[Rfam]
RNA sequence: UUGCCCAAUGAUUAUAGCAAGACGCGUUAUUACGAGGACUAAUGCUGGAACUCCUUCUCCUCCUCUUCUUUUGUCCCUCCUCUUUCACCUUACCCCCCCUCACUUUCCUUAGGGUAUCCAGCGUCCUAUGAGCAAGACUAAGAUAUGAGGGCAA
Number, nucleotide and partner (000 for none) at each position: 001u154002u153003g152004c151005c150006c149007a000008a000009u000010g000011a000012u000013u000014a000015u000016a000017g000018c000019a000020a000021g000022a000023c000024g000025c000026g000027u000028u000029a000030u000031u000032a000033c000034g000035a055036g054037g053038a052039c000040u049041a000042a000043u000044g000045c000046u000047g000048g000049a040050a000051c000052u038053c037054c036055u035056u000057c000058u000059c000060c000061u000062c000063c000064u000065c000066u000067u000068c000069u000070u000071u000072u000073g000074u000075c000076c000077c000078u000079c000080c000081u000082c000083u000084u000085u000086c000087a000088c000089c000090u000091u000092a000093c000094c000095c000096c000097c000098c000099c000100u000101c000102a000103c000104u000105u000106u000107c000108c000109u000110u000111a000112g000113g000114g000115u000116a000117u000118c000119c000120a000121g000122c000123g000124u000125c000126c000127u000128a000129u000130g000131a000132g000133c000134a000135a000136g000137a000138c000139u000140a000141a000142g000143a000144u000145a000146u000147g000148a000149g006150g005151g004152c003153a002154a001
Small nucleolar RNA SNORD97: a 154-nucleotide RNA sequence from Indicator maculatus. Taxonomically the source falls in Indicator (Eukaryota, Chordata, Sarcopterygii, Coraciimorphae). The family's RNA type in Rfam is C/D-box small nucleolar RNA.